[Rfam]
RNA sequence: GCAAUAGAAAGCUAGGGUUCCGGCUGAUACACACAGUGACUGGUCCGAGAGCUUUCGACCUCAAAGUAAAAAAAACCGACAGUUUUGGCGACUUGGCCAAUCGGUUUCGAGGUUACACGGCGGGACAAAAGCCCGGGAGAC
Numbered sequence: 001g002c003a004a005u006a007g008a009a010a011g012c013u014a015g016g017g018u019u020c021c022g023g024c025u026g027a028u029a030c031a032c033a034c035a036g037u038g039a040c041u042g043g044u045c046c047g048a049g050a051g052c053u054u055u056c057g058a059c060c061u062c063a064a065a066g067u068a069a070a071a072a073a074a075a076c077c078g079a080c081a082g083u084u085u086u087g088g089c090g091a092c093u094u095g096g097c098c099a100a101u102c103g104g105u106u107u108c109g110a111g112g113u114u115a116c117a118c119g120g121c122g123g124g125a126c127a128a129a130a131g132c133c134c135g136g137g138a139g140a141c
Stems, first nucleotide, its partner, number of pairs: 007056006015046002020043002022040001023037004057114006064107004116136001118139001122134003

This 141-nucleotide RNA sequence from Cellvibrio sp. PSBB006 belongs to the Rfam family "Guanidine-I riboswitch aptamer".
The match comes from Rfam's covariance-model search (83 bits).
About the family: This family represents a conserved RNA structure found upstream of the ykkC and yxkD genes in Bacillus subtilis and related genes in other bacteria.
Gene Ontology term of the family: regulation of gene expression.